The family of this 85-nucleotide sequence from Caenorhabditis briggsae is "SmY spliceosomal RNA". Rfam classes the family as a spliceosomal small nuclear RNA. A reference for the family is MacMorris et al. (2007), "A novel family of C. elegans snRNPs contains proteins associated with trans-splicing", RNA. Taxonomically the source falls in Caenorhabditis (Eukaryota, Bilateria, Protostomia, Rhabditomorpha).
RNA sequence: GUAUCUAUCAUUUUAUUUUUGAGGCCUUCUACAAGACCUUAAGAACAACUUUUGGAGACCCUGUCCUAAUAUUUGGGGCAGAGUA
Numbered sequence: 001g002u003a004u005c006u007a008u009c010a011u012u013u014u015a016u017u018u019u020u021g022a023g024g025c026c027u028u029c030u031a032c033a034a035g036a037c038c039u040u041a042a043g044a045a046c047a048a049c050u051u052u053u054g055g056a057g058a059c060c061c062u063g064u065c066c067u068a069a070u071a072u073u074u075g076g077g078g079c080a081g082a083g084u085a
Base pairs, nucleotide, nucleotide: 022039023038024037026035027034028033058084059083061081062080063079064078065077066076067075068074